[Rfam]
The family of this 95-nucleotide RNA from Pheucticus melanocephalus is "mir-283 microRNA precursor family". Pairs were carried over by alignment from the consensus structure, which was predicted with WAR. For this family Rfam cites "Identification of microRNAs expressed in two mosquito vectors, Aedes albopictus and Culex quinquefasciatus" (Skalsky et al., BMC Genomics, 2010). NCBI's taxonomy places the organism under Eukaryota, Gnathostomata, Archosauria, Neognathae, Pheucticus. Its family is annotated with miRNA-mediated post-transcriptional gene silencing and RISC complex in the Gene Ontology.
RNA sequence: UAUUUCAAUAUCCCAGGACACUUCCACCUGGUAUUCCUGGGAUUAAUUUCAAAUUCAUCCCAGGAAUACCAGGUGGAAGUGUCCUGGGAUAAAAG
Numbered sequence: 001u002a003u004u005u006c007a008a009u010a011u012c013c014c015a016g017g018a019c020a021c022u023u024c025c026a027c028c029u030g031g032u033a034u035u036c037c038u039g040g041g042a043u044u045a046a047u048u049u050c051a052a053a054u055u056c057a058u059c060c061c062a063g064g065a066a067u068a069c070c071a072g073g074u075g076g077a078a079g080u081g082u083c084c085u086g087g088g089a090u091a092a093a094a095g
Stems, first nucleotide, its partner, number of pairs: 013087006021079011034066008